[Rfam]
This 593-nucleotide part of an RNA from Batrachochytrium dendrobatidis belongs to the Rfam family "Eukaryotic large subunit ribosomal RNA". Its family is annotated with structural constituent of ribosome and ribosome in the Gene Ontology.
RNA sequence: AUCAGCGGGGAAAGAAGACCCUGUUGAGCUUGACUCUAGUUUGACAUUGUGAAAAAACAUGGGGGGCGUAGAAUAAGUGGGAGCUUUGGCACCGGUGAAAUACCACUACCCCCAAUGUUUUUUUACUUAUUCAAUGAAGCAGGAUUGGCCGUCAUGGCCAUAUUGUAGUGUUUGAACCUGGGUUGAAGACAUUGUCAGGUGGGGAGUUUGGCUGGGGCGGCACAUCUGUUAAAAGAUAACGCAGGUGUCCCAAGGGAAACUCAUCGAGAACAGAAAUCUCGAGUAGAACAAAAGGGUAAACGUUUCCUUGAUUUUGAUUUUCAGUGUGAAUACAAACCAUGAAAGUGUGGCCUAUCGAUCCUUUAAAUUCUGGGUAUUUCAGGUUAGAGGUGUCAGAAAAGUUACCACAGGGAUAACUGGCUUGUGGCAGCCAAGCGUUCAUAGCGACGUUGCUUUUUGAUCCUUCGAUGUCGGCUCUUCCUAUCAUUGAGAAGCAAAAUUCUCAAAGCGUCGGAUUGUUCACCCGCCAACAGGGAACGUGAGCUGGGUUUAGACCGUCGUGAGACAGGUUAGUUUUACCCUACUGAUGGAGG
Numbered sequence: 001a002u003c004a005g006c007g008g009g010g011a012a013a014g015a016a017g018a019c020c021c022u023g024u025u026g027a028g029c030u031u032g033a034c035u036c037u038a039g040u041u042u043g044a045c046a047u048u049g050u051g052a053a054a055a056a057a058c059a060u061g062g063g064g065g066g067c068g069u070a071g072a073a074u075a076a077g078u079g080g081g082a083g084c085u086u087u088g089g090c091a092c093c094g095g096u097g098a099a100a101u102a103c104c105a106c107u108a109c110c111c112c113c114a115a116u117g118u119u120u121u122u123u124u125a126c127u128u129a130u131u132c133a134a135u136g137a138a139g140c141a142g143g144a145u146u147g148g149c150c151g152u153c154a155u156g157g158c159c160a161u162a163u164u165g166u167a168g169u170g171u172u173u174g175a176a177c178c179u180g181g182g183u184u185g186a187a188g189a190c191a192u193u194g195u196c197a198g199g200u201g202g203g204g205a206g207u208u209u210g211g212c213u214g215g216g217g218c219g220g221c222a223c224a225u226c227u228g229u230u231a232a233a234a235g236a237u238a239a240c241g242c243a244g245g246u247g248u249c250c251c252a253a254g255g256g257a258a259a260c261u262c263a264u265c266g267a268g269a270a271c272a273g274a275a276a277u278c279u280c281g282a283g284u285a286g287a288a289c290a291a292a293a294g295g296g297u298a299a300a301c302g303u304u305u306c307c308u309u310g311a312u313u314u315u316g317a318u319u320u321u322c323a324g325u326g327u328g329a330a331u332a333c334a335a336a337c338c339a340u341g342a343a344a345g346u347g348u349g350g351c352c353u354a355u356c357g358a359u360c361c362u363u364u365a366a367a368u369u370c371u372g373g374g375u376a377u378u379u380c381a382g383g384u385u386a387g388a389g390g391u392g393u394c395a396g397a398a399a400a401g402u403u404a405c406c407a408c409a410g411g412g413a414u415a416a417c418u419g420g421c422u423u424g425u426g427g428c429a430g431c432c433a434a435g436c437g438u439u440c441a442u443a444g445c446g447a448c449g450u451u452g453c454u455u456u457u458u459g460a461u462c463c464u465u466c467g468a469u470g471u472c473g474g475c476u477c478u479u480c481c482u483a484u485c486a487u488u489g490a491g492a493a494g495c496a497a498a499a500u501u502c503u504c505a506a507a508g509c510g511u512c513g514g515a516u517u518g519u520u521c522a523c524c525c526g527c528c529a530a531c532a533g534g535g536a537a538c539g540u541g542a543g544c545u546g547g548g549u550u551u552a553g554a555c556c557g558u559c560g561u562g563a564g565a566c567a568g569g570u571u572a573g574u575u576u577u578a579c580c581c582u583a584c585u586g587a588u589g590g591a592g593g
Stems, first nucleotide, its partner, number of pairs: 001588005008582003012577002020411004025407002027403005033207004040199007049126010060114006076107005083090002130187005140180004147159005210223001211221003224246006249350002255307006261287002264282006288297002312336003317331004338347003361389006369383004420461001422459001424458001426454006435445002472547001473545004477539001478536005485510001488505006512526003516522001553571004557566003
Dot-bracket structure: (((((..(((.((......((((.(((((((.((((...(((((((..((((((((((.((((((..........(((((..((....))............))))).))))))..))))))))))...(((((.....((((...(((((...))))).................))))..))))).....)))))))....))))..((((.....))).)((((((...........))))))..((....((((((((.((((((.......))))))...))((......))....))))))....(((..((((.......))))..))).(((....))).))..........((((((..((((.......)))))))))).........)))))..))))))........(.(.(.((((((...((.......))...))))))...)).)..........(((((((((((..(..((((((......))))))....).(((.(.....).))).....)))))..)..)))).).....(((((((....))).))))....))..))).))))).....
Rfam's curators put it in the seed alignment.